[Rfam]
RNA sequence: UUCUUAUCUAGAGAGGUCGAGGGACUAGCCUGAAGACACCUCAGCAACCUGUUUUAUAAAUAAGGUGCUACUUCUAGCAAGUUUUAUAAACUUGAAAGAUGAGAA
Numbered sequence: 001u002u003c004u005u006a007u008c009u010a011g012a013g014a015g016g017u018c019g020a021g022g023g024a025c026u027a028g029c030c031u032g033a034a035g036a037c038a039c040c041u042c043a044g045c046a047a048c049c050u051g052u053u054u055u056a057u058a059a060a061u062a063a064g065g066u067g068c069u070a071c072u073u074c075u076a077g078c079a080a081g082u083u084u085u086a087u088a089a090a091c092u093u094g095a096a097a098g099a100u101g102a103g104a105a
Stems, first nucleotide, its partner, number of pairs: 001105008013042005021031003025077004043069004048065002050062004073097001078094006
SAM riboswitch aptamer (S box leader): a 105-nucleotide RNA sequence from Virgibacillus salarius.
A search with the family's covariance model found it, with a score of 92 bits.
NCBI's taxonomy places the organism under Bacteria, Bacilli, Caryophanales, Bacillaceae, Virgibacillus.
The family's consensus secondary structure is taken from published work.
The SAM riboswitch is found upstream of a number of genes which code for proteins involved in methionine or cysteine biosynthesis in Gram-positive bacteria.